[Rfam]
RNA sequence: UCAGUUGGUUAGAGCAGAGGACUCAUCGAAAUGGUGACCACGGAAAGUAAUUUCCGUCGGAAAACCGGGUGAACUCAAGGAAACCUAAAGCGCAAGCCAAGGCAAUCUUGAGCCAAGCCCGCCGAAGGCAGGUCGAAAGACCGGUAGGCGGGAAGGUGCAGAGACUAGGACGUGAGGAGCCCAUCCGAUAAGCGUCCCCCGAGCGCCCGGCACCCCAACAGUUCGGCUGUGGGUGAUGACAUAGUCCAAGGAGUGGGGAAACCCACGC
Numbered sequence: 001u002c003a004g005u006u007g008g009u010u011a012g013a014g015c016a017g018a019g020g021a022c023u024c025a026u027c028g029a030a031a032u033g034g035u036g037a038c039c040a041c042g043g044a045a046a047g048u049a050a051u052u053u054c055c056g057u058c059g060g061a062a063a064a065c066c067g068g069g070u071g072a073a074c075u076c077a078a079g080g081a082a083a084c085c086u087a088a089a090g091c092g093c094a095a096g097c098c099a100a101g102g103c104a105a106u107c108u109u110g111a112g113c114c115a116a117g118c119c120c121g122c123c124g125a126a127g128g129c130a131g132g133u134c135g136a137a138a139g140a141c142c143g144g145u146a147g148g149c150g151g152g153a154a155g156g157u158g159c160a161g162a163g164a165c166u167a168g169g170a171c172g173u174g175a176g177g178a179g180c181c182c183a184u185c186c187g188a189u190a191a192g193c194g195u196c197c198c199c200c201g202a203g204c205g206c207c208c209g210g211c212a213c214c215c216c217a218a219c220a221g222u223u224c225g226g227c228u229g230u231g232g233g234u235g236a237u238g239a240c241a242u243a244g245u246c247c248a249a250g251g252a253g254u255g256g257g258g259a260a261a262c263c264c265a266c267g268c
Base pairs, nucleotide, nucleotide: 001029002028004026005025007023008022009021034039065210066209067208068207070205071204075111076110077109078108079107080106084102085101086100112157113156118151119150125145161247163246164245165244166243167242213233214232215231216229217228219226253266254265255264256263257262
Dot-bracket structure: ((.((.(((...........))).)).))....(....).........................[[[[.[[...((((((...(((.............)))...))))))((....((.....(...................)....))....))...(.(((((....................................]].]]]]..(((((.(......).)).)))........)))))).....(((((....)))))..
Rfam assigns this 268-nucleotide sequence from Simplicispira sp. 125 to the family "Group I catalytic intron".
The match comes from Rfam's covariance-model search (82 bits).
Group I catalytic introns are large self-splicing ribozymes.
Rfam links the family to the GO term Group I intron splicing.
NCBI's taxonomy places the organism under Bacteria, Pseudomonadati, Betaproteobacteria, Comamonadaceae, Simplicispira.
For this family Rfam cites "Self-splicing of group I introns" (Cech, Annu Rev Biochem, 1990).
The family's consensus secondary structure is taken from published work.